[Rfam]
RNA sequence: GUUUCCCCCUUCACUUUACCAAUUAGACUUUUUCUUGUCUUAAUUGGUCAUUCAAGGGGGGUUACAGCAACUAUCCUUUUAAAACCCAGACAGAUUAUAUUUAACUGGCUUGGAUCCUGUCAGAGGAAACAGAU
Numbered sequence: 001g002u003u004u005c006c007c008c009c010u011u012c013a014c015u016u017u018a019c020c021a022a023u024u025a026g027a028c029u030u031u032u033u034c035u036u037g038u039c040u041u042a043a044u045u046g047g048u049c050a051u052u053c054a055a056g057g058g059g060g061g062u063u064a065c066a067g068c069a070a071c072u073a074u075c076c077u078u079u080u081a082a083a084a085c086c087c088a089g090a091c092a093g094a095u096u097a098u099a100u101u102u103a104a105c106u107g108g109c110u111u112g113g114a115u116c117c118u119g120u121c122a123g124a125g126g127a128a129a130c131a132g133a134u
Stems, first nucleotide, its partner, number of pairs: 036064001037062004044055004074127006087112001088110002091107003095103001

Rfam assigns this 134-nucleotide RNA from Laticauda laticaudata to the family "Small nucleolar RNA SNORA27". Its family is annotated with nucleolus and RNA processing in the Gene Ontology. ACA27 is a member of the H/ACA class of snoRNA that guide the sites of modification of uridines to pseudouridines. Clan: SNORA27 clan. The pairing is the family consensus, mapped onto this sequence. Rfam 15.1 lists 819 matches to the family in 543 species. Rfam classes the family as an H/ACA-box small nucleolar RNA.